[Rfam]
Nucleotides: 098
Stems, first nucleotide, its partner, number of pairs: 001098003021081004030071005039063002041057005
Number, partner (000 for none) and nucleotide at each position: 001098u002097g003096c004000u005000g006000u007000g008000a009000u010000g011000g012000u013000g014000u015000a016000a017000u018000u019000u020000g021081c022080g023079u024078c025000u026000g027000a028000c029000u030071c031070u032069g033068u034067g035000a036000u037000c038000a039063g040062u041057g042056a043055c044054a045053g046000u047000u048000g049000c050000c051000u052000g053045c054044u055043g056042u057041c058000a059000c060000a061000u062040a063039c064000u065000g066000g067034c068033a069032c070031a071030g072000a073000u074000g075000g076000c077000u078024g079023g080022u081021g082000a083000c084000u085000c086000u087000u088000g089000a090000g091000u092000c093000u094000g095000a096003g097002c098001a